[Rfam]
RNA sequence: AGCACCUUUAAAUCAGUCCCGUGAGGCUGGCAAGGUAACGUGAAUGGGUUGUGGGAGACCUGCGCUUUUUAUGUGCGGUGGUCUCUGUCAUUAUACCCACAUGAUAGUCAUGGUCAUUUACUGUGGCUAACGACUCCUUGUCUGAUUCAGGCAAGGAGUUUUUUUGU
Numbered sequence: 001a002g003c004a005c006c007u008u009u010a011a012a013u014c015a016g017u018c019c020c021g022u023g024a025g026g027c028u029g030g031c032a033a034g035g036u037a038a039c040g041u042g043a044a045u046g047g048g049u050u051g052u053g054g055g056a057g058a059c060c061u062g063c064g065c066u067u068u069u070u071a072u073g074u075g076c077g078g079u080g081g082u083c084u085c086u087g088u089c090a091u092u093a094u095a096c097c098c099a100c101a102u103g104a105u106a107g108u109c110a111u112g113g114u115c116a117u118u119u120a121c122u123g124u125g126g127c128u129a130a131c132g133a134c135u136c137c138u139u140g141u142c143u144g145a146u147u148c149a150g151g152c153a154a155g156g157a158g159u160u161u162u163u164u165u166g167u
Stems, first nucleotide, its partner, number of pairs: 004036005013030006054086007063077003067073001130162001132160012
About this RNA: Shown here is a 167-nucleotide sequence from Paenibacillus lentus, a member of the family "PyrR binding site". Taxonomically the source falls in Paenibacillus (Bacteria, Bacillati, Bacillota, Paenibacillaceae). This family represents the PyrR binding site and terminator structure. Gene Ontology terms of the family: pyrimidine nucleobase biosynthetic process and pyrimidine nucleobase transport.